[Rfam]
The family of this 108-nucleotide sequence from Halalkalibacter oceani is "PyrR binding site". A search with the family's covariance model found it, with a score of 62 bits. Lineage of the source: Bacteria > Bacillota > Bacilli > Caryophanales > Halalkalibacter. Its family is annotated with pyrimidine nucleobase transport and pyrimidine nucleobase biosynthetic process in the Gene Ontology. The family's RNA type in Rfam is cis-regulatory element. About the family: This family represents the PyrR binding site and terminator structure. This RNA structure is found upstream of a variety of genes involved in pyrimidine biosynthesis and transport. The alignment also includes a portion of the antiterminator structure.
RNA sequence: AUGUCCUUUAACUACAGUCCCGUGAGGCUGAGAAGGAAACGAACGUACAGGUAGUAUAUGUAACGUACAUUCACCUCUCAUGUCUUUUGGACAUGAGAGGUUUUUUCG
Numbered sequence: 001a002u003g004u005c006c007u008u009u010a011a012c013u014a015c016a017g018u019c020c021c022g023u024g025a026g027g028c029u030g031a032g033a034a035g036g037a038a039a040c041g042a043a044c045g046u047a048c049a050g051g052u053a054g055u056a057u058a059u060g061u062a063a064c065g066u067a068c069a070u071u072c073a074c075c076u077c078u079c080a081u082g083u084c085u086u087u088u089g090g091a092c093a094u095g096a097g098a099g100g101u102u103u104u105u106u107c108g
Base pairs, nucleotide, nucleotide: 004037005036006035007034008033009032015030016029017028018027019026039070041068043066044065045064046063047061048060049059051057073101074100075099076098077097078096079095080094081093082092083091084090